[Rfam]
RNA sequence: GAAUGAGCAAUACCGCAAAUCUUGUUUUAUCAAGAGGUUGGUAUUGCUCCUCCAACA
Numbered sequence: 001g002a003a004u005g006a007g008c009a010a011u012a013c014c015g016c017a018a019a020u021c022u023u024g025u026u027u028u029a030u031c032a033a034g035a036g037g038u039u040g041g042u043a044u045u046g047c048u049c050c051u052c053c054a055a056c057a
Stems, first nucleotide, its partner, number of pairs: 001053001003051001005049010020035005